[Rfam]
RNA sequence: CCGGUUCCGGUUCACGCCCGAUCCCGACACGCGACGCGUCGGGGCCGCACGGGCGACCCGGCGACC
Numbered sequence: 001c002c003g004g005u006u007c008c009g010g011u012u013c014a015c016g017c018c019c020g021a022u023c024c025c026g027a028c029a030c031g032c033g034a035c036g037c038g039u040c041g042g043g044g045c046c047g048c049a050c051g052g053g054c055g056a057c058c059c060g061g062c063g064a065c066c
Base pairs, nucleotide, nucleotide: 003066004065005064007061008060009059010058015055016054017053018052019051020050